[Rfam]
RNA: SAH (S-adenosyl-L-homocysteine) riboswitch aptamer
RNA sequence: GGCUCCAAGGAGCGUUGCAGCACGGUACUUUUCACACGACCGUGUCAGGCUUGGAACCGAAUCUUUUCGCAACGGCGCUCACGUUAC
Dot-bracket structure: .(.(((((............((((((............))))))......))))).)..............................